[Rfam]
RNA sequence: CGAUAUAAGGACGAAAAGUCAAGUGCUGCUGUGCUUGCACAAAGCAGUGCUUGACCUUGAGGACUGAACGGACAUGAGGAAGAAGGCCGAUUAGGCCGGAUUCCGAAUGGACGUAGGCUUGCGGGAACGCAAGUGGAGCAAGCCGUAUAUCG
Number, nucleotide and partner (000 for none) at each position: 001c152002g151003a150004u149005a148006u147007a146008a000009g064010g000011a000012c061013g000014a000015a058016a057017a000018g055019u054020c053021a052022a051023g050024u049025g048026c047027u046028g045029c044030u041031g040032u039033g038034c000035u000036u000037g000038c033039a032040c031041a030042a000043a000044g029045c028046a027047g026048u025049g024050c023051u022052u021053g020054a019055c018056c000057u016058u015059g000060a000061g012062g000063a000064c009065u000066g000067a000068a114069c113070g112071g000072a000073c109074a108075u107076g000077a000078g104079g103080a102081a101082g000083a000084a000085g097086g096087c095088c094089g000090a000091u000092u000093a000094g088095g087096c086097c085098g000099g000100a000101u081102u080103c079104c078105g000106a000107a075108u074109g073110g000111a000112c070113g069114u068115a000116g144117g143118c142119u141120u140121g139122c138123g000124g000125g000126a000127a134128c133129g000130c000131a000132a000133g128134u127135g000136g000137a000138g122139c121140a120141a119142g118143c117144c116145g000146u007147a006148u005149a004150u003151c002152g001

Clostridiales-1 RNA: a 152-nucleotide RNA from Butyrivibrio sp. YAB3001. Pairs were carried over by alignment from the consensus structure, which is taken from published work. By type it is a small RNA.